[Rfam]
RNA sequence: UAGUCGAAGUCGUCGAAGUCGUCGUCGAAGUCGUCGAAGUCGUCGACGACGUCGUCGACUUCGUCGACUUCGAGGACGACGUCGACGACUUCGUCGACUUCGAGGACGACGUCGACGACUUCGUCGACUUCGAGGACGACGUCGACGACUUCGUCGACUUCGAGGACGACGUCGACGACUUCGUCGACUUCGAGGACGACGUCGACGACUUCGUCGACUUCGAGGACGACGUCGACGACUUCGUCGACUUCGAGGACGACGUCGACGACUUCGUCGACUUCGAGGACGACGUCGACGACUUCGUCGACUUCGAGGACGACGUCGACGACUUCGUCGACUUCGAGGACGACGUCGACGACGUCGUCGACGUCGUCCUCGAAGUCGACGAAGUCGUCGAAGUCCUCGAAGUCGUCGUCGAAGUCGUCGAAGUCGUCGACGUCGUCCUCGA
Numbered sequence: 001u002a003g004u005c006g007a008a009g010u011c012g013u014c015g016a017a018g019u020c021g022u023c024g025u026c027g028a029a030g031u032c033g034u035c036g037a038a039g040u041c042g043u044c045g046a047c048g049a050c051g052u053c054g055u056c057g058a059c060u061u062c063g064u065c066g067a068c069u070u071c072g073a074g075g076a077c078g079a080c081g082u083c084g085a086c087g088a089c090u091u092c093g094u095c096g097a098c099u100u101c102g103a104g105g106a107c108g109a110c111g112u113c114g115a116c117g118a119c120u121u122c123g124u125c126g127a128c129u130u131c132g133a134g135g136a137c138g139a140c141g142u143c144g145a146c147g148a149c150u151u152c153g154u155c156g157a158c159u160u161c162g163a164g165g166a167c168g169a170c171g172u173c174g175a176c177g178a179c180u181u182c183g184u185c186g187a188c189u190u191c192g193a194g195g196a197c198g199a200c201g202u203c204g205a206c207g208a209c210u211u212c213g214u215c216g217a218c219u220u221c222g223a224g225g226a227c228g229a230c231g232u233c234g235a236c237g238a239c240u241u242c243g244u245c246g247a248c249u250u251c252g253a254g255g256a257c258g259a260c261g262u263c264g265a266c267g268a269c270u271u272c273g274u275c276g277a278c279u280u281c282g283a284g285g286a287c288g289a290c291g292u293c294g295a296c297g298a299c300u301u302c303g304u305c306g307a308c309u310u311c312g313a314g315g316a317c318g319a320c321g322u323c324g325a326c327g328a329c330u331u332c333g334u335c336g337a338c339u340u341c342g343a344g345g346a347c348g349a350c351g352u353c354g355a356c357g358a359c360g361u362c363g364u365c366g367a368c369g370u371c372g373u374c375c376u377c378g379a380a381g382u383c384g385a386c387g388a389a390g391u392c393g394u395c396g397a398a399g400u401c402c403u404c405g406a407a408g409u410c411g412u413c414g415u416c417g418a419a420g421u422c423g424u425c426g427a428a429g430u431c432g433u434c435g436a437c438g439u440c441g442u443c444c445u446c447g448a
Base pairs, nucleotide, nucleotide: 006341007340008339009338010337011336012335014333015332016331018292019289020288021287022286023285025283026282028280029279030278031277032276033275035273039272042269043268044267045266048203049202051200052199053198054197055196056195059093060088062087063086064085065084067082068081070079071078101192102191103190104189107186110183111182114176116174117173118172119171121169122168123167131162132161134159135158137156138155139154140153142147204263205262206261207260211259212258213257214256215255219253220252222250223249224248293306294305295304296303342377343376344375345374346373347372348371350369351368352367354365355364356363357362385415386414387413388412390410392408394406395405396404397403416447417446418442420440422438423437424436425435426434

Notes: Saccharopolyspora sRNA 350: a 448-nucleotide RNA sequence. Pairs were carried over by alignment from the consensus structure, which was predicted with RNAfold. A reference for the family is Liu et al. (2013), "Prediction and characterization of small non-coding RNAs related to secondary metabolites in Saccharopolyspora erythraea", PLoS One. Its family is annotated with regulation of secondary metabolite biosynthetic process in the Gene Ontology.